[Rfam]
ctRNA: a 46-nucleotide RNA from Rhizobium sp. P32RR-XVIII. By type it is an antisense RNA. Taxonomically the source falls in Rhizobium (Bacteria, Pseudomonadati, Alphaproteobacteria, Rhizobiaceae). From the family's description: This family represents a group of ctRNAs (or counter-transcribed RNAs) from p42d and related plasmids. ctRNAs are small, highly structured, antisense sequences which are involved in negative regulation. Members of this family are known to bind to the mRNA of repC causing translational repression. This model contains the predicted stem-loop structure followed by a U-rich tract which is proposed to act as a Rho-independent transcriptional terminator.
RNA sequence: AGGAAAGCUUCCGUUGCGGUUUCGUGCGGGGGCUUUUUUCUUUUGC
Numbered sequence: 001a002g003g004a005a006a007g008c009u010u011c012c013g014u015u016g017c018g019g020u021u022u023c024g025u026g027c028g029g030g031g032g033c034u035u036u037u038u039u040c041u042u043u044u045g046c
Stems, first nucleotide, its partner, number of pairs: 005035008015026004